[Rfam]
RNA: Small nucleolar RNA R44/J54/Z268 family
Organism: Salix purpurea
RNA sequence: UGUGCAAAUGGUGAUAGAACAGACAGGGACAUCAGCCACUCCGAUUUCAAUUGGAGAAUGUUGACUACGUCUAAAUGGGAAUCUCUCUGAUGCAUU
Numbered sequence: 001u002g003u004g005c006a007a008a009u010g011g012u013g014a015u016a017g018a019a020c021a022g023a024c025a026g027g028g029a030c031a032u033c034a035g036c037c038a039c040u041c042c043g044a045u046u047u048c049a050a051u052u053g054g055a056g057a058a059u060g061u062u063g064a065c066u067a068c069g070u071c072u073a074a075a076u077g078g079g080a081a082u083c084u085c086u087c088u089g090a091u092g093c094a095u096u
Base pairs, nucleotide, nucleotide: 002095003094004093005092006091